[Rfam]
RNA sequence: CGCUUGGGACCAGAGUGCUGCUUUUCAGGAUCAGCAAAGCUUCAAGUUUUGUGCACUCCUGAAUUUGCAGGGCCAGCAUCAGUUUGGAUGGUUGUAUAAAGUCAGGAGAAAGGUAGCUUUGUCUUUUUUAGAUAGAGUGUUAUAGACUCUUGUGCAAUGCAACCAAUUUGGACUGAGGACUGCAGCAAUUUAUUUGCUUAAGGAUGCUGGCGUAAUGGUCUCAAUCGACCCGUCUUGAAACACGG
Numbered sequence: 001c002g003c004u005u006g007g008g009a010c011c012a013g014a015g016u017g018c019u020g021c022u023u024u025u026c027a028g029g030a031u032c033a034g035c036a037a038a039g040c041u042u043c044a045a046g047u048u049u050u051g052u053g054c055a056c057u058c059c060u061g062a063a064u065u066u067g068c069a070g071g072g073c074c075a076g077c078a079u080c081a082g083u084u085u086g087g088a089u090g091g092u093u094g095u096a097u098a099a100a101g102u103c104a105g106g107a108g109a110a111a112g113g114u115a116g117c118u119u120u121g122u123c124u125u126u127u128u129u130a131g132a133u134a135g136a137g138u139g140u141u142a143u144a145g146a147c148u149c150u151u152g153u154g155c156a157a158u159g160c161a162a163c164c165a166a167u168u169u170g171g172a173c174u175g176a177g178g179a180c181u182g183c184a185g186c187a188a189u190u191u192a193u194u195u196g197c198u199u200a201a202g203g204a205u206g207c208u209g210g211c212g213u214a215a216u217g218g219u220c221u222c223a224a225u226c227g228a229c230c231c232g233u234c235u236u237g238a239a240a241c242a243c244g245g
Stems, first nucleotide, its partner, number of pairs: 001227002004224009019069003025063001074209007230245004
Eukaryotic large subunit ribosomal RNA: a 245-nucleotide part of an RNA from Neolecta irregularis. The match comes from Rfam's covariance-model search (3430 bits). NCBI's taxonomy places the organism under Eukaryota, Taphrinomycotina, Neolectomycetes, Neolectales, Neolecta irregularis.